[Rfam]
FMN riboswitch aptamer (RFN element): a 157-nucleotide sequence from Paenibacillus sabuli.
The match comes from Rfam's covariance-model search (101 bits).

RNA sequence: UAGUUCCUUCGGGGUCGGGUGCAAUUCCCAACCGACGGUGAUCGGCGGCGCGAUUCGCGCCAUCGUCAGUCCGUGACCCGCGUGUCCGUAUCGGAGGCGCGGCUGACCCGGUGCAAGUCCGGGACCGACAGUACAGUCUGGAUGGGAGAAGGAGACG
Numbered sequence: 001u002a003g004u005u006c007c008u009u010c011g012g013g014g015u016c017g018g019g020u021g022c023a024a025u026u027c028c029c030a031a032c033c034g035a036c037g038g039u040g041a042u043c044g045g046c047g048g049c050g051c052g053a054u055u056c057g058c059g060c061c062a063u064c065g066u067c068a069g070u071c072c073g074u075g076a077c078c079c080g081c082g083u084g085u086c087c088g089u090a091u092c093g094g095a096g097g098c099g100c101g102g103c104u105g106a107c108c109c110g111g112u113g114c115a116a117g118u119c120c121g122g123g124a125c126c127g128a129c130a131g132u133a134c135a136g137u138c139u140g141g142a143u144g145g146g147a148g149a150a151g152g153a154g155a156c157g
Stems, first nucleotide, its partner, number of pairs: 004154007017029003031137002033127002035074004069125002078102004107123005129140003